RNA sequence: UACAAAGGGUUUACGAAGGAUGACUUGGCAGAUUCAGGCGAUGAAGGACGUGGCAAGCUGCGAUAAGCUUCGGGGAGCUGCAAAUAAGCUUUGAUCCGGAGAUGUCCGAAUGGGGCAACCCAACAGGGCUAAUCCCCUGUUAUCUGUUAGUAAAUACAUAGCUAACAGAUGCUAACGAGGCGAAUUGAAACAUCUCAGUAGCCUCAGGAAAAGAAAACGAAGUGAUUCCCUCAGUAGCGGCGAGCGAACCGGGAACAGGCUAAACCUUAAUGCUUGCAUUAAGGGGUUGUGGGACCUCAACGUGGGAUUGUGGAGAGAUAGCAGAAGGAUCUGGAAAGGUCCGCCAUAGACGGUGAAAGCCCGGUAUGCGAAAUUUCGAAGCACCCUAGAGGCAUCCCAAGUAGUACGGGGCACGGGAAAUCCCGUAUGAAUCUGUGCCGACCAUGGCAUAAGCCUAAAUACUCGAAUCUGACCGAAAGUGCACAAGUACUGUGAAGGAAAGUCGAAAAGAACCCCGGGAGGGGAGUGAAAUAGAACCUAAAAUCGUAAACUUACAAAG
Number, nucleotide and partner (000 for none) at each position: 001u000002a000003c000004a000005a000006a000007g553008g552009g551010u550011u549012u548013a547014c546015g545016a544017a000018g000019g000020a000021u000022g538023a503024c502025u000026u000027g474028g473029c471030a470031g469032a468033u467034u466035c465036a463037g462038g172039c171040g000041a000042u000043g000044a000045a000046g107047g106048a105049c062050g061051u060052g000053g000054c000055a000056a000057g000058c000059u000060g051061c050062g049063a000064u000065a000066a000067g000068c101069u100070u099071c098072g097073g096074g095075g000076a000077g089078c088079u087080g000081c000082a000083a000084a000085u000086a000087a079088g078089c077090u000091u000092u000093g000094a000095u074096c073097c072098g071099g070100a069101g068102a000103u000104g000105u048106c047107c046108g000109a000110a000111u000112g121113g120114g119115g000116c000117a000118a000119c114120c113121c112122a141123a140124c139125a138126g137127g136128g135129c000130u000131a000132a000133u000134c000135c128136c127137c126138u125139g124140u123141u122142a000143u169144c168145u167146g166147u165148u164149a163150g162151u161152a000153a000154a000155u000156a000157c000158a000159u000160a000161g151162c150163u149164a148165a147166c146167a145168g144169a143170u000171g039172c038173u000174a000175a000176c207177g205178a204179g203180g202181c201182g000183a000184a000185u000186u000187g194188a193189a000190a000191c000192a000193u188194c187195u000196c000197a000198g000199u000200a000201g181202c180203c179204u178205c177206a000207g176208g000209a000210a000211a000212a000213g000214a000215a000216a000217a223218c222219g000220a000221a000222g218223u217224g000225a000226u459227u254228c253229c252230c251231u000232c000233a000234g000235u000236a000237g245238c244239g000240g000241c000242g000243a000244g238245c237246g000247a000248a000249c000250c000251g230252g229253g228254a227255a000256c000257a456258g455259g454260c453261u000262a000263a000264a000265c284266c283267u282268u281269a280270a279271u278272g000273c000274u000275u000276g000277c000278a271279u270280u269281a268282a267283g266284g265285g000286g000287u000288u000289g000290u000291g398292g397293g396294a000295c392296c391297u390298c389299a000300a000301c000302g000303u000304g000305g000306g000307a000308u000309u383310g382311u381312g000313g000314a000315g377316a376317g375318a374319u373320a000321g369322c368323a367324g000325a000326a000327g342328g341329a340330u339331c338332u000333g000334g000335a000336a000337a000338g331339g330340u329341c328342c327343g000344c000345c349346a000347u000348a000349g345350a000351c363352g362353g361354u000355g000356a000357a000358a000359g000360c000361c353362c352363g351364g000365u000366a000367u323368g322369c321370g000371a000372a000373a319374u318375u317376u316377c315378g000379a000380a000381g311382c310383a309384c000385c000386c000387u000388a000389g298390a297391g296392g295393c000394a000395u000396c293397c292398c291399a000400a000401g000402u000403a000404g428405u427406a426407c425408g424409g423410g422411g421412c000413a000414c000415g000416g000417g000418a000419a000420a000421u411422c410423c409424c408425g407426u406427a405428u404429g000430a000431a000432u000433c000434u000435g450436u449437g448438c447439c446440g000441a000442c000443c000444a000445u000446g439447g438448c437449a436450u435451a000452a000453g260454c259455c258456u257457a000458a000459a226460u000461a000462c037463u036464c000465g035466a034467a033468u032469c031470u030471g029472a000473c028474c027475g000476a000477a000478a000479g000480u000481g000482c000483a000484c000485a000486a000487g000488u000489a000490c497491u496492g000493u000494g000495a000496a491497g490498g000499a000500a000501a000502g024503u023504c000505g000506a000507a000508a000509a000510g000511a000512a000513c524514c523515c522516c521517g000518g000519g000520a000521g516522g515523g514524g513525a000526g000527u000528g000529a000530a000531a000532u000533a000534g000535a000536a000537c000538c022539u000540a000541a000542a000543a000544u016545c015546g014547u013548a012549a011550a010551c009552u008553u007554a000555c000556a000557a000558a000559g000

Bacterial large subunit ribosomal RNA: a 559-nucleotide part of an RNA from an uncultured bacterium. The base pairs follow the family's consensus structure, which is taken from published work.